[Rfam]
RNA sequence: AGAACGAUAUCGGGAGAGAUCGCUGGCCUUGUUGAUAGGUGCAGCGACGCCGAAGGAGCAACCGCCCCGGAAACUCUCAGGCAAAUGGACCGGUAUCGAUCA
Numbered sequence: 001a002g003a004a005c006g007a008u009a010u011c012g013g014g015a016g017a018g019a020u021c022g023c024u025g026g027c028c029u030u031g032u033u034g035a036u037a038g039g040u041g042c043a044g045c046g047a048c049g050c051c052g053a054a055g056g057a058g059c060a061a062c063c064g065c066c067c068c069g070g071a072a073a074c075u076c077u078c079a080g081g082c083a084a085a086u087g088g089a090c091c092g093g094u095a096u097c098g099a100u101c102a
Base pairs, nucleotide, nucleotide: 006097007096008095009094010093011092012091013090020047021046022045023044024043025042049082050081051080052078053077056076057075058074062070063069
RNA: Glycine riboswitch aptamer
Organism: Nitrincola sp. A-D6